Source information: The family of this 122-nucleotide sequence from Nostoc sp. ATCC 43529 is "Nitrogen stress-induced RNA 9". NCBI's taxonomy places the organism under Bacteria, Cyanophyceae, Nostocales, Nostocaceae, Nostoc. For this family Rfam cites "Identification of Conserved and Potentially Regulatory Small RNAs in Heterocystous Cyanobacteria" (Brenes-Alvarez et al., Front Microbiol, 2016).

[Rfam]
RNA sequence: AUUCACGUCUGUGACUGUGAGUGUGACUAAAACCUAAAUAGUCACUGUUGCUGAUUGUUGGGAAGGUGUAGGGACAACCCUUUGGGGUUUUCCUGCAUGACGGGCAUCUCUUGUAGAUGCCC
Numbered sequence: 001a002u003u004c005a006c007g008u009c010u011g012u013g014a015c016u017g018u019g020a021g022u023g024u025g026a027c028u029a030a031a032a033c034c035u036a037a038a039u040a041g042u043c044a045c046u047g048u049u050g051c052u053g054a055u056u057g058u059u060g061g062g063a064a065g066g067u068g069u070a071g072g073g074a075c076a077a078c079c080c081u082u083u084g085g086g087g088u089u090u091u092c093c094u095g096c097a098u099g100a101c102g103g104g105c106a107u108c109u110c111u112u113g114u115a116g117a118u119g120c121c122c
Stems, first nucleotide, its partner, number of pairs: 006066001008064001010062001012060004017055002020052003023045007067097007076089004102122008
The base pairs follow the family's consensus structure, which was predicted with RNAalifold.